[Rfam]
RNA sequence: GGCCCGCCUCUUGCUUUAGCACCCUCAGGUAGCCAACGGCGGUUGCCACCACUCACGACAAAGACGUCGC
Numbered sequence: 001g002g003c004c005c006g007c008c009u010c011u012u013g014c015u016u017u018a019g020c021a022c023c024c025u026c027a028g029g030u031a032g033c034c035a036a037c038g039g040c041g042g043u044u045g046c047c048a049c050c051a052c053u054c055a056c057g058a059c060a061a062a063g064a065c066g067u068c069g070c
Stems, first nucleotide, its partner, number of pairs: 028047007